[Rfam]
RNA sequence: GUAAAUAAAUGGCAAACCCGUUCGAAAGGCGGGGACGCAAAGCUAUGGGUCUACAGCCAUAAGGCCACGACUGCCAGGUUGCCGGU
Dot-bracket structure: ...........((...((((.((....))))))...))..((((.((((((....(((....)))...)))..)))))))......